[Rfam]
RNA sequence: GGCGGCAGCCCCGCCGAAGCAAGCGACCAAGAGCGGGCUUCAAACCACUUCAUGUGGCGCAUGUAAAGAGCAUGGGUCAUGAGCGAUGAAGAAAAGUCAGUAAGCAACUGGCAGGU
Numbered sequence: 001g002g003c004g005g006c007a008g009c010c011c012c013g014c015c016g017a018a019g020c021a022a023g024c025g026a027c028c029a030a031g032a033g034c035g036g037g038c039u040u041c042a043a044a045c046c047a048c049u050u051c052a053u054g055u056g057g058c059g060c061a062u063g064u065a066a067a068g069a070g071c072a073u074g075g076g077u078c079a080u081g082a083g084c085g086a087u088g089a090a091g092a093a094a095a096g097u098c099a100g101u102a103a104g105c106a107a108c109u110g111g112c113a114g115g116u
Stems, first nucleotide, its partner, number of pairs: 001015005016041005023034002046115001048091006054080002057077002060074005096112006
Dot-bracket structure: (((((.....)))))(((((..((........))..)))))....(.((((((((.((.(((((.....))))).)).)).....))))))....((((((.....))))))..).
Group II catalytic intron D1-D4-2: a 116-nucleotide RNA sequence from Legionella pneumophila. NCBI's taxonomy places the organism under Bacteria, Pseudomonadota, Gammaproteobacteria, Legionellales, Legionella pneumophila. The pairing is the family consensus, mapped onto this sequence. About the family: Group II introns are found in rRNA, tRNA and mRNA of organelles in fungi, plants and protists, and also in mRNA in bacteria. It is one of the family's seed sequences.